[Rfam]
RNA sequence: CAGAAUAGAUCAAAGGCUAAGGUCGCGCCGUCCUGGCGGCAGUCUUAAAGCACGACGUCCUGUCGU
Number, nucleotide and partner (000 for none) at each position: 001c000002a000003g000004a000005a000006u000007a000008g000009a000010u000011c000012a000013a046014a045015g044016g043017c042018u000019a000020a000021g000022g000023u000024c000025g000026c038027g037028c036029c035030g000031u000032c000033c000034u000035g029036g028037c027038g026039g000040c000041a000042g017043u016044c015045u014046u013047a000048a000049a000050g000051c000052a066053c065054g064055a063056c062057g000058u000059c000060c000061u000062g056063u055064c054065g053066u052
The family of this 66-nucleotide RNA from Lederbergia galactosidilytica is "Bacillaceae-1 RNA". The family's RNA type in Rfam is small RNA. Rfam 15.1 lists 5,721 matches to the family in 247 species. Taxonomically the source falls in Lederbergia (Bacteria, Bacillota, Bacilli, Caryophanales). The match comes from Rfam's covariance-model search (38 bits).